Record summary: The family of this 71-nucleotide RNA from Thiobacillus denitrificans is "SAH (S-adenosyl-L-homocysteine) riboswitch aptamer". On this family, see Wang et al., Mol Cell 2008: "Riboswitches that sense S-adenosylhomocysteine and activate genes involved in coenzyme recycling".
RNA sequence: GGUUCCGAGGAGCGCUGCGACGGUUCACCCGCCAGGCUCGGGACGCUUCCUUUCAACGGCGCUCACGUUUU
Numbered sequence: 001g002g003u004u005c006c007g008a009g010g011a012g013c014g015c016u017g018c019g020a021c022g023g024u025u026c027a028c029c030c031g032c033c034a035g036g037c038u039c040g041g042g043a044c045g046c047u048u049c050c051u052u053u054c055a056a057c058g059g060c061g062c063u064c065a066c067g068u069u070u071u
Base pairs, nucleotide, nucleotide: 002044003043004042005041006040007039008038021031022030023029

NCBI's taxonomy places the organism under Bacteria, Pseudomonadota, Betaproteobacteria, Thiobacillaceae, Thiobacillus denitrificans.